Annotation
Shown here is a 67-nucleotide RNA from Tieghemostelium lacteum, a member of the family "Class I RNA from Dictyostelium". The organism belongs to Tieghemostelium, within Eukaryota. Dictyostelium Class I RNA was first reported for Aspegren et al. 2004 in Dictyostelium discoideum. Sucgang et al. 2011 identify putative homologs of Class I RNA in D. discoideum and D. purpureum. The base pairs follow the family's consensus structure, which is taken from published work. For this family Rfam cites "Novel non-coding RNAs in Dictyostelium discoideum and their expression during development" (Aspegren et al., Nucleic Acids Res, 2004).
RNA sequence: GGUUCCUUUACAGCAAUCUAUACACAAAAUCAAUGAUCCAAUUCUAUGAAAAACUACCGGGAAUCUG
Numbered sequence: 001g002g003u004u005c006c007u008u009u010a011c012a013g014c015a016a017u018c019u020a021u022a023c024a025c026a027a028a029a030u031c032a033a034u035g036a037u038c039c040a041a042u043u044c045u046a047u048g049a050a051a052a053a054c055u056a057c058c059g060g061g062a063a064u065c066u067g
Stems, first nucleotide, its partner, number of pairs: 001065006
Dot-bracket structure: ((((((.....................................................))))))..
Rfam classes the family as a non-coding RNA gene.